[Rfam]
Source information: The record is a 132-nucleotide RNA sequence from Poecilia formosa, which matches "Small nucleolar RNA SNORA47" in Rfam. Rfam classes the family as an H/ACA-box small nucleolar RNA. A reference for the family is Huttenhofer et al. (2001), "RNomics: an experimental approach that identifies 201 candidates for novel, small, non-messenger RNAs in mouse", EMBO J.
RNA sequence: UGGAGGGCUGAGAAGGUUGAACAGCUUGCCCAGUGCUGUUCUGACCGGUUGUGACCUCCGAGAAUAACCAACAAAUGGCACAGUUUAGUCCCUGUGUCAGAAGGGACCAUGUGUGCUUUUGCGGAACAUUUG
Numbered sequence: 001u002g003g004a005g006g007g008c009u010g011a012g013a014a015g016g017u018u019g020a021a022c023a024g025c026u027u028g029c030c031c032a033g034u035g036c037u038g039u040u041c042u043g044a045c046c047g048g049u050u051g052u053g054a055c056c057u058c059c060g061a062g063a064a065u066a067a068c069c070a071a072c073a074a075a076u077g078g079c080a081c082a083g084u085u086u087a088g089u090c091c092c093u094g095u096g097u098c099a100g101a102a103g104g105g106a107c108c109a110u111g112u113g114u115g116c117u118u119u120u121g122c123g124g125a126a127c128a129u130u131u132g
Base pairs, nucleotide, nucleotide: 002059003058004057005056006055015046016045017044018043019041020040021039022038023037024036025035072121073120074119077117078116080114081113082112088107089106090105091104092103095102